The record is a 125-nucleotide RNA sequence from Rivibacter subsaxonicus, which matches "ZMP/ZTP riboswitch aptamer (pfl RNA motif)" in Rfam.

[Rfam]
Nucleotides: 125
Base pairs, nucleotide, nucleotide: 004073006071007070008069009068010067011066012065015062016061017113018112019111020110021109047058048057049056050055102120104118105117106116
Number, partner (000 for none) and nucleotide at each position: 001000c002000u003000c004073u005000c006071g007070c008069a009068g010067c011066g012065c013000g014000a015062c016061u017113g018112g019111c020110g021109a022000u023000a024000a025000g026000g027000c028000c029000u030000g031000c032000g033000c034000c035000c036000g037000c038000a039000g040000g041000c042000c043000c044000g045000a046000g047058g048057u049056g050055g051000u052000g053000a054000a055050c056049c057048a058047c059000u060000g061016g062015g063000a064000a065012g066011c067010g068009c069008u070007g071006c072000c073004g074000c075000a076000c077000c078000g079000g080000u081000g082000a083000g084000c085000c086000a087000c088000a089000c090000c091000g092000g093000a094000g095000g096000c097000g098000c099000u100000u101000u102120c103000c104118g105117c106116c107000g108000u109021u110020c111019g112018c113017c114000u115000g116106g117105g118104c119000a120102g121000c122000c123000c124000c125000g